Record summary: The record is a 67-nucleotide RNA from Gallus gallus, which matches "mir-34 microRNA precursor family" in Rfam. The family's consensus secondary structure was predicted with RNAalifold. The organism belongs to Gallus, within Eukaryota. The sequence is in the family's curated seed alignment.
RNA sequence: GGUUACCAGGCAGUGUAGUUAGCUGAUUGCCACCAGGACCAAUCACUAACCACACAGCCAGGUAAAA
Numbered sequence: 001g002g003u004u005a006c007c008a009g010g011c012a013g014u015g016u017a018g019u020u021a022g023c024u025g026a027u028u029g030c031c032a033c034c035a036g037g038a039c040c041a042a043u044c045a046c047u048a049a050c051c052a053c054a055c056a057g058c059c060a061g062g063u064a065a066a067a
Stems, first nucleotide, its partner, number of pairs: 003065004009059002013055004018050005024045006